The family of this 109-nucleotide sequence from Brevibacillus laterosporus is "SAM riboswitch aptamer (S box leader)".
RNA sequence: UUCUUAUCCAGAGAGGCGGAGGGACUGGCCCGUUGAUGCCCGGCAACCACUUGUUUAUUGCAAGAUGGUGCUAAUUCCUGCAGGACAAUUUUGUUCUGAAAGAUGAGAA
Numbered sequence: 001u002u003c004u005u006a007u008c009c010a011g012a013g014a015g016g017c018g019g020a021g022g023g024a025c026u027g028g029c030c031c032g033u034u035g036a037u038g039c040c041c042g043g044c045a046a047c048c049a050c051u052u053g054u055u056u057a058u059u060g061c062a063a064g065a066u067g068g069u070g071c072u073a074a075u076u077c078c079u080g081c082a083g084g085a086c087a088a089u090u091u092u093g094u095u096c097u098g099a100a101a102g103a104u105g106a107g108a109a
Base pairs, nucleotide, nucleotide: 001109002108003107004106005105006104007103008102013041015040016039017038021031022030023029025080027078028077042072043071044070045069047068048067050064051063052062053061076101081098082097083096084095085094086093